[Rfam]
RNA sequence: GCCCGCUUGGUGGAACCGGUAGACACAACAGACUUAAAAUCUGUCGGCCUUUGGCUGUGCCAGUUCGAGUCUGGCAGCGGGCA
Numbered sequence: 001g002c003c004c005g006c007u008u009g010g011u012g013g014a015a016c017c018g019g020u021a022g023a024c025a026c027a028a029c030a031g032a033c034u035u036a037a038a039a040u041c042u043g044u045c046g047g048c049c050u051u052u053g054g055c056u057g058u059g060c061c062a063g064u065u066c067g068a069g070u071c072u073g074g075c076a077g078c079g080g081g082c083a
Stems, first nucleotide, its partner, number of pairs: 001082007010026003028044005059075005
This 83-nucleotide RNA from bacterium NHP-B belongs to the Rfam family "tRNA". From the family's description: Transfer RNA (tRNA) molecules are approximately 80 nucleotides in length. Pairs were carried over by alignment from the consensus structure, which is taken from published work. Gene Ontology term of the family: triplet codon-amino acid adaptor activity. The match comes from Rfam's covariance-model search (57 bits).